The family of this 150-nucleotide RNA from Ensifer meliloti is "Alphaproteobacterial sRNA ar7". Taxonomically the source falls in Ensifer (Bacteria, Pseudomonadota, Hyphomicrobiales, Rhizobiaceae). By type it is a small RNA. The sequence is in the family's curated seed alignment.
[Rfam]
RNA sequence: GAGCGGCACUCAUACAAUGCCGUGAGUCUGGUGAUUGGCCUGUCCCCCGCCCGCACCAGAUGAGGACAAAGGCCUCAUCCCCCUCUCCGGGCCUUUGUCCCGCUUUCAAAGAGCCGCCACGGCGCAGCCUCCGCGCCGUGGCGGUUUUUU
Numbered sequence: 001g002a003g004c005g006g007c008a009c010u011c012a013u014a015c016a017a018u019g020c021c022g023u024g025a026g027u028c029u030g031g032u033g034a035u036u037g038g039c040c041u042g043u044c045c046c047c048c049g050c051c052c053g054c055a056c057c058a059g060a061u062g063a064g065g066a067c068a069a070a071g072g073c074c075u076c077a078u079c080c081c082c083c084u085c086u087c088c089g090g091g092c093c094u095u096u097g098u099c100c101c102g103c104u105u106u107c108a109a110a111g112a113g114c115c116g117c118c119a120c121g122g123c124g125c126a127g128c129c130u131c132c133g134c135g136c137c138g139u140g141g142c143g144g145u146u147u148u149u150u
Base pairs, nucleotide, nucleotide: 027060028059029058030057031056032055033054037051038050039049064100065099066098067097068096069095070094071093072092073091074090112146114144115143116142117141118140119139120138121137122136123135124134125133